[Rfam]
RNA: mir-9215 microRNA precursor family
Organism: Pipistrellus kuhlii
Nucleotides: 085
Stems, first nucleotide, its partner, number of pairs: 001083004006079004012072006019066001022063001024061002027059003031054003037050004
Number, partner (000 for none) and nucleotide at each position: 001083u002082g003081a004080a005000g006079u007078g008077c009076u010000c011000u012072g013071a014070c015069a016068c017067u018000a019066c020000c021000a022063u023000g024061u025060g026000u027059g028058g029057c030000u031054g032053c033052c034000a035000u036000g037050g038049g039048u040047u041000g042000g043000u044000g045000g046000g047040a048039a049038c050037c051000a052033g053032g054031c055000u056000u057029g058028u059027c060025c061024a062000g063022g064000g065000u066019g067017a068016g069015u070014g071013u072012c073000c074000c075000c076009a077008g078007u079006g080004u081003u082002c083001a084000a085000u